[Rfam]
The family of this 80-nucleotide RNA sequence from Propionispora sp. 2/2-37 is "ZMP/ZTP riboswitch aptamer (pfl RNA motif)". The literature on the family includes a 2015 paper in Nat Struct Mol Biol by Jones and Ferre-D'Amare, "Recognition of the bacterial alarmone ZMP through long-distance association of two RNA subdomains". The family's consensus secondary structure is taken from published work. A search with the family's covariance model found it, with a score of 64 bits.
RNA sequence: UUAUGGAUACGGAACUGGCGGAUAGUGGAGUUCACCACAUGGACCGUAUCCAGGAAAAGCCGACCGCCUGGGCAAGAUUU
Numbered sequence: 001u002u003a004u005g006g007a008u009a010c011g012g013a014a015c016u017g018g019c020g021g022a023u024a025g026u027g028g029a030g031u032u033c034a035c036c037a038c039a040u041g042g043a044c045c046g047u048a049u050c051c052a053g054g055a056a057a058a059g060c061c062g063a064c065c066g067c068c069u070g071g072g073c074a075a076g077a078u079u080u
Base pairs, nucleotide, nucleotide: 004052005051006050007049008048009047010046011045012044015041017068018067019066020065021064025038026037027036028035059073060072061071